About this RNA: Shown here is a 68-nucleotide RNA from Chanos chanos, a member of the family "mir-8/mir-141/mir-200 microRNA precursor family". The match comes from Rfam's covariance-model search (53 bits). NCBI's taxonomy places the organism under Eukaryota, Chordata, Gnathostomata, Chanoidei, Chanos. The base pairs follow the family's consensus structure, which was predicted with RNAalifold. For this family Rfam cites "New microRNAs from mouse and human" (Lagos-Quintana et al., RNA, 2003).
RNA sequence: GGGCACAUCUUAUCCGACAGUGCUGGGCUGUUUGUUAUGAUCUAACACUGUCUGGUAACGAUGCACAC
Numbered sequence: 001g002g003g004c005a006c007a008u009c010u011u012a013u014c015c016g017a018c019a020g021u022g023c024u025g026g027g028c029u030g031u032u033u034g035u036u037a038u039g040a041u042c043u044a045a046c047a048c049u050g051u052c053u054g055g056u057a058a059c060g061a062u063g064c065a066c067a068c
Base pairs, nucleotide, nucleotide: 003066006063007062008061009060010058011057012056013055014054016052017051018050019049020048021047022046024044025043026042027041